Overview
A member of the RNA family "Alphaproteobacterial sRNA ar9" from Consotaella salsifontis, 158 nucleotides long. By type it is a small RNA. A reference for the family is del Val et al. (2012), "A survey of sRNA families in alpha-proteobacteria", RNA Biol. The organism belongs to Consotaella, within Bacteria.

[Rfam]
RNA sequence: ACAUAACGGAGCCCGCACACAAGCUUCCGAAAUCGCGGUCUAGUCUAGGGAGGACAUGAUUUCCGGCGCGCCUUUGGCUGCAGCCCCGGCGAACAAGCCGGCAGGAAAUCGAGACCUGCACAUCCUGGAAAUGCAAGGCUUCGGCCUUGCAUUUUUUU
Numbered sequence: 001a002c003a004u005a006a007c008g009g010a011g012c013c014c015g016c017a018c019a020c021a022a023g024c025u026u027c028c029g030a031a032a033u034c035g036c037g038g039u040c041u042a043g044u045c046u047a048g049g050g051a052g053g054a055c056a057u058g059a060u061u062u063c064c065g066g067c068g069c070g071c072c073u074u075u076g077g078c079u080g081c082a083g084c085c086c087c088g089g090c091g092a093a094c095a096a097g098c099c100g101g102c103a104g105g106a107a108a109u110c111g112a113g114a115c116c117u118g119c120a121c122a123u124c125c126u127g128g129a130a131a132u133g134c135a136a137g138g139c140u141u142c143g144g145c146c147u148u149g150c151a152u153u154u155u156u157u158u
Base pairs, nucleotide, nucleotide: 001157003155008027009026010025011024012023035119036118037117043055044054045053046052058110059109060108061107062106065085066084067083068081069080070079086101087100088099089098090097132151133150134149135148136147137146138145139144